[Rfam]
The family of this 141-nucleotide RNA from Ananas comosus is "Small nucleolar RNA snoR136". It scores 60 bits against the family's covariance model. Rfam 15.1 lists 452 matches to the family in 212 species. The literature on the family includes a 2009 paper in Nucleic Acids Res by Chen and Wu, "Mining small RNA sequencing data: a new approach to identify small nucleolar RNAs in Arabidopsis". By type it is an H/ACA-box small nucleolar RNA.
RNA sequence: GCUGCUUCAUUAUAUUCUUCUAGGAGCCUAUGGAUAUGUCCUGUUUUAUGGGUCCUUAAGCAAGUGAAGCAAGAAAUAAUGGUUCCCCUCGCUAUCCAGUGCAGGAUGUUUUCUGUAUUUGGACGUUGGGGUACUACAUUG
Numbered sequence: 001g002c003u004g005c006u007u008c009a010u011u012a013u014a015u016u017c018u019u020c021u022a023g024g025a026g027c028c029u030a031u032g033g034a035u036a037u038g039u040c041c042u043g044u045u046u047u048a049u050g051g052g053u054c055c056u057u058a059a060g061c062a063a064g065u066g067a068a069g070c071a072a073g074a075a076a077u078a079a080u081g082g083u084u085c086c087c088c089u090c091g092c093u094a095u096c097c098a099g100u101g102c103a104g105g106a107u108g109u110u111u112u113c114u115g116u117a118u119u120u121g122g123a124c125g126u127u128g129g130g131g132u133a134c135u136a137c138a139u140u141g
Base pairs, nucleotide, nucleotide: 002073003071004070005069008066009065010064011063013062017060018059024055026053027052028051029050030049031048034047036045082134083133085131086130087129088128090125091124095123096122097121098120099119104113105112106111